[Rfam]
RNA sequence: CCGGCCCCGGGUUCAAGUAAUCCAGGAUAGGCUGUGUGCUGGCAGUCAGCCUGUUCUAGGUUACUUGGCUCCGGAGCCCG
Numbered sequence: 001c002c003g004g005c006c007c008c009g010g011g012u013u014c015a016a017g018u019a020a021u022c023c024a025g026g027a028u029a030g031g032c033u034g035u036g037u038g039c040u041g042g043c044a045g046u047c048a049g050c051c052u053g054u055u056c057u058a059g060g061u062u063a064c065u066u067g068g069c070u071c072c073g074g075a076g077c078c079c080g
Stems, first nucleotide, its partner, number of pairs: 003078003007074005014067009024057010
RNA: mir-26 microRNA precursor family
Organism: Aythya fuligula